Shown here is a 70-nucleotide RNA sequence from Orthoflavivirus nilense, a member of the family "Flavivirus DB element".
The sequence is in the family's curated seed alignment.
The source organism's lineage runs through Viruses, Kitrinoviricota, Flasuviricetes, Euflavivirus and Orthoflavivirus nilense.
By type it is a cis-regulatory element.
Pairs were carried over by alignment from the consensus structure, which is taken from published work.
A reference for the family is Chiu et al. (2005), "Control of translation by the 5'- and 3'-terminal regions of the dengue virus genome", J Virol.

Nucleotides: 070
Base pairs, nucleotide, nucleotide: 001064002063003062004061005060006039007038011033012032013031014030015029016028017027046059047058048057049056
Number, partner (000 for none) and nucleotide at each position: 001064c002063a003062c004061g005060g006039c007038c008000c009000a010000a011033c012032u013031u014030a015029g016028c017027u018000g019000a020000a021000g022000c023000u024000g025000u026000a027017a028016g029015c030014u031013a032012a033011g034000g035000g036000a037000a038007g039006g040000a041000c042000u043000a044000g045000a046059g047058g048057u049056u050000a051000g052000a053000g054000g055000a056049g057048a058047c059046c060005c061004c062003g063002u064001g065000c066000c067000a068000a069000a070000a